c-di-GMP-I-GGC riboswitch aptamer: a 93-nucleotide RNA sequence from bacterium HR07. Rfam 15.1 lists 1,298 matches to the family in 717 species. Its family is annotated with cyclic-di-GMP binding in the Gene Ontology.
[Rfam]
RNA sequence: CCUGACAAAGGCAAACCGCGCGAAAGCGCGGGACGCAAAGCCACAGACCUACGACAGUGCACCACACUGCUCAUGGUGGCUGGGCUGCCAAAG
Numbered sequence: 001c002c003u004g005a006c007a008a009a010g011g012c013a014a015a016c017c018g019c020g021c022g023a024a025a026g027c028g029c030g031g032g033a034c035g036c037a038a039a040g041c042c043a044c045a046g047a048c049c050u051a052c053g054a055c056a057g058u059g060c061a062c063c064a065c066a067c068u069g070c071u072c073a074u075g076g077u078g079g080c081u082g083g084g085c086u087g088c089c090a091a092a093g
Stems, first nucleotide, its partner, number of pairs: 001093001003090002011036002016031006034079001039086004044082003047077003